RNA sequence: UGUAAGUAUUUUACGAUUAAGAAGCAACUGUAUGUUUUCUCUUGUACAGAUUGUGUAUAGAUUU
Numbered sequence: 001u002g003u004a005a006g007u008a009u010u011u012u013a014c015g016a017u018u019a020a021g022a023a024g025c026a027a028c029u030g031u032a033u034g035u036u037u038u039c040u041c042u043u044g045u046a047c048a049g050a051u052u053g054u055g056u057a058u059a060g061a062u063u064u
Base pairs, nucleotide, nucleotide: 018044019043020042021041022040024038
Record summary:
The record is a 64-nucleotide RNA sequence from Beta vulgaris, which matches "Plastid-rps18 3UTR RNA" in Rfam. Plastid rps18 is a non-coding RNA (ncRNA) present in plastids. It was identified as a short stem-loop motif in the 3 prime untranslate region (3UTR) of rps18 gene. The family's consensus secondary structure was predicted with LocARNA. It scores 62 bits against the family's covariance model. On this family, see Richter et al., Plant Commun 2023: "Retrograde signaling in plants: A critical review focusing on the GUN pathway and beyond".